[Rfam]
RNA sequence: AGCUUUGCGCAGAGGCGAUAACGUGACCAAUGAGGGAAACCGAGGUGCGUUUAUUGCUGGUUGAAAACUUAUACCAAUUACCCGCAAUGGCCUGUGAAAUAUCGGUGCCAUUUGCAAUUUUUGGACGCCCAACAGGGG
Numbered sequence: 001a002g003c004u005u006u007g008c009g010c011a012g013a014g015g016c017g018a019u020a021a022c023g024u025g026a027c028c029a030a031u032g033a034g035g036g037a038a039a040c041c042g043a044g045g046u047g048c049g050u051u052u053a054u055u056g057c058u059g060g061u062u063g064a065a066a067a068c069u070u071a072u073a074c075c076a077a078u079u080a081c082c083c084g085c086a087a088u089g090g091c092c093u094g095u096g097a098a099a100u101a102u103c104g105g106u107g108c109c110a111u112u113u114g115c116a117a118u119u120u121u122u123g124g125a126c127g128c129c130c131a132a133c134a135g136g137g138g
Stems, first nucleotide, its partner, number of pairs: 020051005026046003034041002084115003087111005093105001096102001129138002

The family of this 138-nucleotide sequence from Panagrolaimus sp. JU765 is "U4 spliceosomal RNA". The match comes from Rfam's covariance-model search (102 bits). Its Rfam clan is "U4 clan". The source organism's lineage runs through Eukaryota, Protostomia, Nematoda, Chromadorea and Panagrolaimus.